[Rfam]
RNA sequence: GUCGCGAUCGUGUCAAUCGGACGCGAUAGGGAUGGCGAACGCAUCGGUUUUUCCGGUUUCUCGAUGCGGGCAACGAAACGCCAGGCGAGCGCACAACCUGUCCGGUCG
Numbered sequence: 001g002u003c004g005c006g007a008u009c010g011u012g013u014c015a016a017u018c019g020g021a022c023g024c025g026a027u028a029g030g031g032a033u034g035g036c037g038a039a040c041g042c043a044u045c046g047g048u049u050u051u052u053c054c055g056g057u058u059u060c061u062c063g064a065u066g067c068g069g070g071c072a073a074c075g076a077a078a079c080g081c082c083a084g085g086c087g088a089g090c091g092c093a094c095a096a097c098c099u100g101u102c103c104g105g106u107c108g
Stems, first nucleotide, its partner, number of pairs: 006107004011023004025102006035092003040068007069082003

Rfam assigns this 108-nucleotide RNA from Rhizobium sp. BK376 to the family "Rhizobiales sRNA Atu_At1". The organism belongs to Rhizobium, within Bacteria.